[Rfam]
RNA sequence: UGUCUCCUCCACCCUCCUCCUUUGGUGGAUUAAGCCCAAACGCGAAACCGUUUGGGCUUUUUUUU
Numbered sequence: 001u002g003u004c005u006c007c008u009c010c011a012c013c014c015u016c017c018u019c020c021u022u023u024g025g026u027g028g029a030u031u032a033a034g035c036c037c038a039a040a041c042g043c044g045a046a047a048c049c050g051u052u053u054g055g056g057c058u059u060u061u062u063u064u065u
Stems, first nucleotide, its partner, number of pairs: 008029006033058008
Description:
A member of the RNA family "Betaproteobacteria toxic small RNA" from Parvibium lacunae, 65 nucleotides long. The family's consensus secondary structure was predicted with WAR. Rfam 15.1 lists 951 matches to the family in 508 species. The source organism's lineage runs through Bacteria, Pseudomonadati, Pseudomonadota, Burkholderiales and Parvibium. The match comes from Rfam's covariance-model search (70 bits). Rfam's curators write: Overexpression in amino aid rich medium attenuates growth, suggesting role in repressing amino acid intake and metabolism.